Notes:
Shown here is a 370-nucleotide sequence, a member of the family "Bag-1 internal ribosome entry site (IRES)".
[Rfam]
RNA sequence: UGCUCCGUGAACAAACGCGGGCCUGGCGGAUCGCGGCGGCGCGCGGCGACCGCGAGGCGACCAGGAGCCGCUGGGACCCCGGCUGCGCGCCCCUCGGUCGGCCCGGGAGACGCGCCAGUCGGAGUCCCGGGCCGAGCGUGGCUUGCCUCCCUCUCAGCGUUCAUCUGUCCGCAGUGCAGCCAGCGGGCAUGACCGAUCCACCAGGGGCGCCGCCUCCGGCGCUUGCAAGCCGCGGGUGAAGAAGAAAGUCCGGCCCCGCUCUUCUCAGAGCGAGAAGGUAGCUCACAGCAAGGAGUUGACUAGAAGUAAGAAGUUGACCCGCAGCAAGAAAGUGACCGGGACCCAGGAGGCGACCCAAGUAGAGGAGGUG
Numbered sequence: 001u002g003c004u005c006c007g008u009g010a011a012c013a014a015a016c017g018c019g020g021g022c023c024u025g026g027c028g029g030a031u032c033g034c035g036g037c038g039g040c041g042c043g044c045g046g047c048g049a050c051c052g053c054g055a056g057g058c059g060a061c062c063a064g065g066a067g068c069c070g071c072u073g074g075g076a077c078c079c080c081g082g083c084u085g086c087g088c089g090c091c092c093c094u095c096g097g098u099c100g101g102c103c104c105g106g107g108a109g110a111c112g113c114g115c116c117a118g119u120c121g122g123a124g125u126c127c128c129g130g131g132c133c134g135a136g137c138g139u140g141g142c143u144u145g146c147c148u149c150c151c152u153c154u155c156a157g158c159g160u161u162c163a164u165c166u167g168u169c170c171g172c173a174g175u176g177c178a179g180c181c182a183g184c185g186g187g188c189a190u191g192a193c194c195g196a197u198c199c200a201c202c203a204g205g206g207g208c209g210c211c212g213c214c215u216c217c218g219g220c221g222c223u224u225g226c227a228a229g230c231c232g233c234g235g236g237u238g239a240a241g242a243a244g245a246a247a248g249u250c251c252g253g254c255c256c257c258g259c260u261c262u263u264c265u266c267a268g269a270g271c272g273a274g275a276a277g278g279u280a281g282c283u284c285a286c287a288g289c290a291a292g293g294a295g296u297u298g299a300c301u302a303g304a305a306g307u308a309a310g311a312a313g314u315u316g317a318c319c320c321g322c323a324g325c326a327a328g329a330a331a332g333u334g335a336c337c338g339g340g341a342c343c344c345a346g347g348a349g350g351c352g353a354c355c356c357a358a359g360u361a362g363a364g365g366a367g368g369u370g
Stems, first nucleotide, its partner, number of pairs: 020104002023101005038093002041090002043053004061082002064079002068075001144352007166189006205224008257272005